RNA sequence: UAACAAAAUUCGAAAGGAAUGGGUAAGGGGCAAUGGACAAUUAAUCUUAUUUUCGUACCGAUUUUUUAUAUAUCGAGUAUCUAGAGAAUAGGAUUACUAUGCCCAUUUCCAUGUCCAUUUGUAUACCAUACAUUUGUACGUUUAUUUGUAUUGGGAAAAAUGUGUCCUCUCUAGGUACUUACUAGGGAGGUUUUUUU
Dot-bracket structure: ...............(((.((((...((.............(((((((((((((.(((((((.(.....).)))).)))....)))))))))))))))...))))..))).......(...........(...).........)...................(.(((((((((.......))))))))).).....
RNA: Bacillus sRNA ncr1575
Organism: Bacillus sp. HNG